Rfam assigns this 113-nucleotide RNA sequence from Neobacillus mesonae to the family "PyrR binding site".
It is annotated as a cis-regulatory element.
A search with the family's covariance model found it, with a score of 57 bits.
Rfam 15.1 lists 1,498 matches to the family in 930 species.
From the family's description: This family represents the PyrR binding site and terminator structure. This RNA structure is found upstream of a variety of genes involved in pyrimidine biosynthesis and transport. The alignment also includes a portion of the antiterminator structure.
On this family, see Bonner et al., Nucleic Acids Res 2001: "Molecular recognition of pyr mRNA by the Bacillus subtilis attenuation regulatory protein PyrR".
Rfam links the family to the GO terms pyrimidine nucleobase transport and pyrimidine nucleobase biosynthetic process.
The family's consensus secondary structure is taken from published work.
RNA sequence: AUAGCCUUUAAGAACAGUCCGGUGAGGCUGAGAAGGUACGGAUUAAAUGGGUUUGACCCAUUAAAUGCAUCUUACAAUGUACCUCUCACUGCCCGCGGUGAGAGGUUUUUUAG
Number, nucleotide and partner (000 for none) at each position: 001a000002u000003a000004g037005c036006c035007u034008u033009u032010a000011a000012g000013a000014a000015c030016a029017g028018u027019c026020c000021g000022g000023u000024g000025a000026g019027g018028c017029u016030g015031a000032g009033a008034a007035g006036g005037u004038a000039c000040g068041g000042a066043u065044u064045a000046a062047a061048u060049g059050g058051g057052u056053u000054u000055g000056a052057c051058c050059c049060a048061u047062u046063a000064a044065a043066u042067g000068c040069a000070u000071c000072u000073u000074a000075c000076a000077a000078u000079g108080u000081a106082c105083c104084u103085c102086u101087c100088a099089c098090u097091g096092c000093c000094c000095g000096c091097g090098g089099u088100g087101a086102g085103a084104g083105g082106u081107u000108u079109u000110u000111u000112a000113g000